[Rfam]
Overview:
Shown here is an 83-nucleotide RNA sequence from Mojavia pulchra, a member of the family "Photosynthesis regulatory RNA1". The match comes from Rfam's covariance-model search (50 bits). Its family is annotated with regulation of translation and regulation of photosynthesis in the Gene Ontology. The family's consensus secondary structure was predicted with CMfinder. Rfam describes the family as follows. Formerly known as Syr1 discovered in Synechocystis sp PCC 6803, is a regulatory factor controlling photosynthetic functions. PsrR1 interacts with the ribosome binding regions of several photosynthesis-related mRNAs. The organism belongs to Mojavia pulchra, within Bacteria.
RNA sequence: AAGAUUUUUAACUUCGGUAACGGUAUCUUUCAUCGCUAUUUGUUCUUCUCUGCUUCACCUCGGACAGUUUUGCCGAGGUUUUU
Numbered sequence: 001a002a003g004a005u006u007u008u009u010a011a012c013u014u015c016g017g018u019a020a021c022g023g024u025a026u027c028u029u030u031c032a033u034c035g036c037u038a039u040u041u042g043u044u045c046u047u048c049u050c051u052g053c054u055u056c057a058c059c060u061c062g063g064a065c066a067g068u069u070u071u072g073c074c075g076a077g078g079u080u081u082u083u
Base pairs, nucleotide, nucleotide: 057079058078059077060076061075062074063073